[Rfam]
mir-31 microRNA precursor family: an 80-nucleotide sequence from Phocoena sinus. Its Rfam clan is "mir-31 microRNA precursor family". The base pairs follow the family's consensus structure, which was predicted with RNAalifold. The literature on the family includes a 2003 paper in Dev Cell by Aravin et al., "The small RNA profile during Drosophila melanogaster development".

RNA sequence: AACUGGAGAGGAGGCAAGAUGCUGGCAUAGCUGUUGAACUGAGAGCCUGCUAUGCCAGCAUACUGCCACCUCUCUUGUCU
Numbered sequence: 001a002a003c004u005g006g007a008g009a010g011g012a013g014g015c016a017a018g019a020u021g022c023u024g025g026c027a028u029a030g031c032u033g034u035u036g037a038a039c040u041g042a043g044a045g046c047c048u049g050c051u052a053u054g055c056c057a058g059c060a061u062a063c064u065g066c067c068a069c070c071u072c073u074c075u076u077g078u079c080u
Stems, first nucleotide, its partner, number of pairs: 005075007013067004019061003023057009